[Rfam]
Nucleotides: 070
Base pairs, nucleotide, nucleotide: 001070002069003068004067
Number, partner (000 for none) and nucleotide at each position: 001070g002069u003068g004067g005000a006000a007000u008000g009000a010000u011000g012000a013000u014000a015000u016000g017000c018000c019000u020000u021000g022000g023000u024000c025000c026000g027000u028000g029000u030000u031000u032000c033000u034000g035000a036000u037000a038000a039000a040000c041000u042000a043000g044000u045000g046000a047000c048000g049000u050000u051000a052000u053000a054000c055000a056000g057000g058000c059000u060000u061000c062000a063000c064000u065000g066000a067004c068003c069002a070001c

Small nucleolar RNA SNORD18: a 70-nucleotide RNA sequence from Mytilus edulis. Its family is annotated with RNA processing and nucleolus in the Gene Ontology. The base pairs follow the family's consensus structure, which was predicted with PFOLD. Its Rfam clan is "SNORD18 clan". For this family Rfam cites "Release of U18 snoRNA from its host intron requires interaction of Nop1p with the Rnt1p endonuclease" (Giorgi et al., EMBO J, 2001). It scores 43 bits against the family's covariance model.